[Rfam]
RNA sequence: UCGCUCACCAGCGCUCGGUCUCUCCUCGUGGUGCUGGCCUGCCCUCCGUGAGCCAGAGAAACAGGACUGGUUUGGGGGUCUCCCAUCCGAACAGCCACGGGAGACCACGGUUUCCAGUGCGACA
Numbered sequence: 001u002c003g004c005u006c007a008c009c010a011g012c013g014c015u016c017g018g019u020c021u022c023u024c025c026u027c028g029u030g031g032u033g034c035u036g037g038c039c040u041g042c043c044c045u046c047c048g049u050g051a052g053c054c055a056g057a058g059a060a061a062c063a064g065g066a067c068u069g070g071u072u073u074g075g076g077g078g079u080c081u082c083c084c085a086u087c088c089g090a091a092c093a094g095c096c097a098c099g100g101g102a103g104a105c106c107a108c109g110g111u112u113u114c115c116a117g118u119g120c121g122a123c124a
Stems, first nucleotide, its partner, number of pairs: 003053006013042002017039004024031002064120001066118005072110003077106008087094001

This 124-nucleotide RNA sequence from Bos taurus belongs to the Rfam family "Small Cajal body specific RNA 23". NCBI's taxonomy places the organism under Eukaryota, Bilateria, Teleostomi, Mammalia, Bos. On this family, see Darzacq et al., EMBO J 2002: "Cajal body-specific small nuclear RNAs: a novel class of 2'-O-methylation and pseudouridylation guide RNAs". It is annotated as a small Cajal body RNA. Its family is annotated with RNA processing, nucleolus and Cajal body in the Gene Ontology.